[Rfam]
RNA: Guanidine-II riboswitch aptamer (mini-ykkC)
Organism: Chloroflexia bacterium SDU3-3
RNA sequence: CCGCUGGGACGACCCAGCGCAGAUUUUUCAUGUGAAGGGGACGACCCCU
Number, nucleotide and partner (000 for none) at each position: 001c000002c019003g018004c017005u016006g015007g014008g013009a000010c000011g000012a000013c008014c007015c006016a005017g004018c003019g002020c000021a000022g000023a000024u000025u000026u000027u000028u000029c000030a000031u000032g000033u000034g000035a000036a049037g048038g047039g046040g045041a000042c000043g000044a000045c040046c039047c038048c037049u036